This 158-nucleotide sequence from Paenibacillus sp. GSMTC-2017 belongs to the Rfam family "c-di-AMP riboswitch aptamer (ydaO/yuaA leader)". Lineage of the source: Bacteria > Bacillati > Bacillota > Bacilli > Paenibacillus. A search with the family's covariance model found it, with a score of 88 bits.
RNA sequence: AUAGCUUCAUUGUCGAAUUUCCAAUUAGGGAAAUCGGGGGAACCAAUCACCGAAUCUAUACAUGAAUCGGUGCGGGGUGAAUCUUGGAAUGUUCCGAGUAGGGUACUCUCAUACCCGAAUCCGUCAGCUAACCUCGUAGACACAAUGAGAGAGGACCC
Numbered sequence: 001a002u003a004g005c006u007u008c009a010u011u012g013u014c015g016a017a018u019u020u021c022c023a024a025u026u027a028g029g030g031a032a033a034u035c036g037g038g039g040g041a042a043c044c045a046a047u048c049a050c051c052g053a054a055u056c057u058a059u060a061c062a063u064g065a066a067u068c069g070g071u072g073c074g075g076g077g078u079g080a081a082u083c084u085u086g087g088a089a090u091g092u093u094c095c096g097a098g099u100a101g102g103g104u105a106c107u108c109u110c111a112u113a114c115c116c117g118a119a120u121c122c123g124u125c126a127g128c129u130a131a132c133c134u135c136g137u138a139g140a141c142a143c144a145a146u147g148a149g150a151g152a153g154g155a156c157c158c
Base pairs, nucleotide, nucleotide: 011142012141013140014139018033019032020031021030022029035136036135037134038133039132044074075122076121077120083098084097085096086095101116102115103114104113